A member of the RNA family "Pseudomonas sRNA P18" from Pseudomonas aeruginosa, 135 nucleotides long.
Taxonomically the source falls in Pseudomonas aeruginosa (Bacteria, Gammaproteobacteria, Pseudomonadaceae, Pseudomonas).
The family's consensus secondary structure was predicted with WAR.
On this family, see Livny et al., Nucleic Acids Res 2006: "Identification of 17 Pseudomonas aeruginosa sRNAs and prediction of sRNA-encoding genes in 10 diverse pathogens using the bioinformatic tool sRNAPredict2".
[Rfam]
RNA sequence: GGCGGCGUCUACCUCAGCCCGCUGUUCGUCUAUGCCCUGCUGGCGCUGGCGGCCACCGCCGCGCUGCGGGUGCUGAUCCAGAAAACGCCGUUGCGUCGCUGGGUCUGGCACGAGGCGCUGUUCGACUGCGCCCUG
Numbered sequence: 001g002g003c004g005g006c007g008u009c010u011a012c013c014u015c016a017g018c019c020c021g022c023u024g025u026u027c028g029u030c031u032a033u034g035c036c037c038u039g040c041u042g043g044c045g046c047u048g049g050c051g052g053c054c055a056c057c058g059c060c061g062c063g064c065u066g067c068g069g070g071u072g073c074u075g076a077u078c079c080a081g082a083a084a085a086c087g088c089c090g091u092u093g094c095g096u097c098g099c100u101g102g103g104u105c106u107g108g109c110a111c112g113a114g115g116c117g118c119u120g121u122u123c124g125a126c127u128g129c130g131c132c133c134u135g
Stems, first nucleotide, its partner, number of pairs: 002067007012052002014049005019043003023039001068133002075097003079093003098131002102127004108121003